[Rfam]
Rfam assigns this 101-nucleotide RNA from Callithrix jacchus to the family "Y RNA". By type it is a non-coding RNA gene. A search with the family's covariance model found it, with a score of 48 bits. About the family: Y RNAs are components of the Ro ribonucleoprotein particle (Ro RNP), in association with Ro60 and La proteins. Pairs were carried over by alignment from the consensus structure, which is taken from published work.
RNA sequence: GGUGGUCCGAGUGCAGUGAUGUUUACAGCUAAUCGGUCACAACCAGUUACAGACUUCUUUAUUCCUUCUCCAUUCCCACUGCUUCGCUUGAGUAGUCAAAA
Numbered sequence: 001g002g003u004g005g006u007c008c009g010a011g012u013g014c015a016g017u018g019a020u021g022u023u024u025a026c027a028g029c030u031a032a033u034c035g036g037u038c039a040c041a042a043c044c045a046g047u048u049a050c051a052g053a054c055u056u057c058u059u060u061a062u063u064c065c066u067u068c069u070c071c072a073u074u075c076c077c078a079c080u081g082c083u084u085c086g087c088u089u090g091a092g093u094a095g096u097c098a099a100a101a
Stems, first nucleotide, its partner, number of pairs: 001096001003094002006091002009089002013085001015080004021075001027063002031059002